Background: This 169-nucleotide RNA from Myotis brandtii belongs to the Rfam family "Interferon gamma 5' UTR regulatory element". Taxonomically the source falls in Myotis (Eukaryota, Chordata, Euteleostomi, Eutheria). On this family, see Ben-Asouli et al., Cell 2002: "Human interferon-gamma mRNA autoregulates its translation through a pseudoknot that activates the interferon-inducible protein kinase PKR". Rfam classes the family as a cis-regulatory element. This family represents a pseudoknot containing stem-loop structure found in the 5' UTR of interferon (IFN) gamma mRNA. This structure is thought to be involved in translational regulation and the pseudoknot has been found to activate PKR which is known to be a translational inhibitor. Mutations in the pseudoknot structure have been found to reduce PKR activation and increase the translation of IFN-gamma.
[Rfam]
RNA sequence: CAUUCUUCUUAACGUCUACAGAUUGGCUAUUAGAAGAGAAAGAUCAGCUGAGUCCUUUGGACCCGAUCAACUCAAUUCCGGAACUACUGAUUUCAACGACUUCGGCCCAACUCUCUCCAAAACAAUGAAAUAUACAAGUUAUAUCUUAGCUUUACAGCUUUGCGUGAUC
Numbered sequence: 001c002a003u004u005c006u007u008c009u010u011a012a013c014g015u016c017u018a019c020a021g022a023u024u025g026g027c028u029a030u031u032a033g034a035a036g037a038g039a040a041a042g043a044u045c046a047g048c049u050g051a052g053u054c055c056u057u058u059g060g061a062c063c064c065g066a067u068c069a070a071c072u073c074a075a076u077u078c079c080g081g082a083a084c085u086a087c088u089g090a091u092u093u094c095a096a097c098g099a100c101u102u103c104g105g106c107c108c109a110a111c112u113c114u115c116u117c118c119a120a121a122a123c124a125a126u127g128a129a130a131u132a133u134a135c136a137a138g139u140u141a142u143a144u145c146u147u148a149g150c151u152u153u154a155c156a157g158c159u160u161u162g163c164g165u166g167a168u169c
Stems, first nucleotide, its partner, number of pairs: 009069001011067001013065002015120001020114003025107004032101002036097001041093007051085003056081002059078001122168001125165003130144005148159004